[Rfam]
RNA sequence: GUCGGGAUAGUGGCCGGUGAAGAUCGUGGGACGACUCGGCACGCA
Numbered sequence: 001g002u003c004g005g006g007a008u009a010g011u012g013g014c015c016g017g018u019g020a021a022g023a024u025c026g027u028g029g030g031a032c033g034a035c036u037c038g039g040c041a042c043g044c045a
Stems, first nucleotide, its partner, number of pairs: 012032001014030002017027002
Rfam assigns this 45-nucleotide sequence from Mycobacterium kiyosense to the family "Mycobacterium sRNA Ms_AS-5". Rfam classes the family as a small RNA.